The record is a 304-nucleotide sequence from Carpinus fangiana, which matches "Plant signal recognition particle RNA" in Rfam.
RNA sequence: ACCGGGCUUAGUAACGCAAGCCUUUAACCUGAGUGGGAGUACUAAGUUGAUGGGACUCUGGCCCAACCCAAUUGGUUGGAUCUUGGUUGCCAGUUGCUGGCCUGCCCGUUCCAAGCCCAGAGCUGAACCAUAUGACCUGUGCGAAGGCUCUGGAUCAUGUGGCUCCUAAAGAGGAGGAUUCUGCGUCAGGCUGGUUACAGAGCAGCGUCUACCUCCCGCUCCUGGCAGUGGAAGGAUUACGGGUCGGUGGCUUCAUGAUCCAAAACGACCUGUUGGGUUGACCCCGGGUUGGACCAUCAAAUUU
Numbered sequence: 001a002c003c004g005g006g007c008u009u010a011g012u013a014a015c016g017c018a019a020g021c022c023u024u025u026a027a028c029c030u031g032a033g034u035g036g037g038a039g040u041a042c043u044a045a046g047u048u049g050a051u052g053g054g055a056c057u058c059u060g061g062c063c064c065a066a067c068c069c070a071a072u073u074g075g076u077u078g079g080a081u082c083u084u085g086g087u088u089g090c091c092a093g094u095u096g097c098u099g100g101c102c103u104g105c106c107c108g109u110u111c112c113a114a115g116c117c118c119a120g121a122g123c124u125g126a127a128c129c130a131u132a133u134g135a136c137c138u139g140u141g142c143g144a145a146g147g148c149u150c151u152g153g154a155u156c157a158u159g160u161g162g163c164u165c166c167u168a169a170a171g172a173g174g175a176g177g178a179u180u181c182u183g184c185g186u187c188a189g190g191c192u193g194g195u196u197a198c199a200g201a202g203c204a205g206c207g208u209c210u211a212c213c214u215c216c217c218g219c220u221c222c223u224g225g226c227a228g229u230g231g232a233a234g235g236a237u238u239a240c241g242g243g244u245c246g247g248u249g250g251c252u253u254c255a256u257g258a259u260c261c262a263a264a265a266c267g268a269c270c271u272g273u274u275g276g277g278u279u280g281a282c283c284c285c286g287g288g289u290u291g292g293a294c295c296a297u298c299a300a301a302u303u304u
Stems, first nucleotide, its partner, number of pairs: 001040002004023006028037003044303002047300007056291001058287003061283001064280003068276005074270004078261005084255002091249002097247008106235002109233005115226003120221004125165002128162008136153002139150001141148002166171001173216005183208004191200003
The base pairs follow the family's consensus structure, which is taken from published work. Rfam classes the family as a non-coding RNA gene.